[Rfam]
RNA sequence: GACCUUGCCACUGGGCAAAAGACAAAUUUUUUAAAAGGGCUUUGGUAUUCCGAUAGCUAUCGGGAGAAUGAGACCAGCUAAAAUAAGGCUAAAAU
Numbered sequence: 001g002a003c004c005u006u007g008c009c010a011c012u013g014g015g016c017a018a019a020a021g022a023c024a025a026a027u028u029u030u031u032u033a034a035a036a037g038g039g040c041u042u043u044g045g046u047a048u049u050c051c052g053a054u055a056g057c058u059a060u061c062g063g064g065a066g067a068a069u070g071a072g073a074c075c076a077g078c079u080a081a082a083a084u085a086a087g088g089c090u091a092a093a094a095u
Stems, first nucleotide, its partner, number of pairs: 006017004040072003048065001051062004
RT-17 RNA: a 95-nucleotide RNA sequence from Mariniflexile rhizosphaerae. The source organism's lineage runs through Bacteria, Pseudomonadati, Flavobacteriales, Flavobacteriaceae and Mariniflexile. A search with the family's covariance model found it, with a score of 44 bits.